[Rfam]
RNA sequence: GUAGGCUACGGAGACAUGUGUCCCAUUACUGUGGCGGGUAAGAUUGUUGGCACCUUGUGUGCAAUAGCAGGUGUAUUGACGAUAGCGUUGCCUGUUCCUGUCAUUGUUUCAAAC
Numbered sequence: 001g002u003a004g005g006c007u008a009c010g011g012a013g014a015c016a017u018g019u020g021u022c023c024c025a026u027u028a029c030u031g032u033g034g035c036g037g038g039u040a041a042g043a044u045u046g047u048u049g050g051c052a053c054c055u056u057g058u059g060u061g062c063a064a065u066a067g068c069a070g071g072u073g074u075a076u077u078g079a080c081g082a083u084a085g086c087g088u089u090g091c092c093u094g095u096u097c098c099u100g101u102c103a104u105u106g107u108u109u110c111a112a113a114c
Stems, first nucleotide, its partner, number of pairs: 001114002005110001008107004013102004018097001020095002037077004050062002
Shown here is a 114-nucleotide RNA from Oryzias latipes, a member of the family "Potassium channel RNA editing signal". By type it is a cis-regulatory element. Rfam's curators write: This family represents a group of sequences related to the human potassium channel Kv1.1 hairpin element which directs the efficient modification of an adenosine to inosine by an adenosine deaminase acting on RNA (ADAR). The ADAR modification causes an isoleucine/valine recoding event which lies in the ion-conducting pore of the potassium channel. The base pairs follow the family's consensus structure, which is taken from published work. It scores 103 bits against the family's covariance model. A reference for the family is Bhalla et al. (2004), "Control of human potassium channel inactivation by editing of a small mRNA hairpin", Nat Struct Mol Biol.